Shown here is a 157-nucleotide RNA sequence from Aureimonas glaciei, a member of the family "Alphaproteobacterial sRNA ar9". Taxonomically the source falls in Aureimonas (Bacteria, Pseudomonadota, Hyphomicrobiales, Aurantimonadaceae). The literature on the family includes a 2012 paper in RNA Biol by del Val et al., "A survey of sRNA families in alpha-proteobacteria". A search with the family's covariance model found it, with a score of 60 bits.
[Rfam]
RNA sequence: ACAUAAACACGGGUGUCCUUAAGACAUUCGCAUCGCGGUCUAGUCUCGGGAGGACGUGGUUUUCGGCGCACUUCGGUCGCGGCCCCGGACAAUGUAUCCGGUUUGAAAACCCAGAUCUGCAAUCUGAAAAUGCAAGACUUCGGUCUUGCAUUUUUUU
Numbered sequence: 001a002c003a004u005a006a007a008c009a010c011g012g013g014u015g016u017c018c019u020u021a022a023g024a025c026a027u028u029c030g031c032a033u034c035g036c037g038g039u040c041u042a043g044u045c046u047c048g049g050g051a052g053g054a055c056g057u058g059g060u061u062u063u064c065g066g067c068g069c070a071c072u073u074c075g076g077u078c079g080c081g082g083c084c085c086c087g088g089a090c091a092a093u094g095u096a097u098c099c100g101g102u103u104u105g106a107a108a109a110c111c112c113a114g115a116u117c118u119g120c121a122a123u124c125u126g127a128a129a130a131u132g133c134a135a136g137a138c139u140u141c142g143g144u145c146u147u148g149c150a151u152u153u154u155u156u157u
Stems, first nucleotide, its partner, number of pairs: 003157001005155002011029006035120003043055004058111005065084003068080002085101005131150008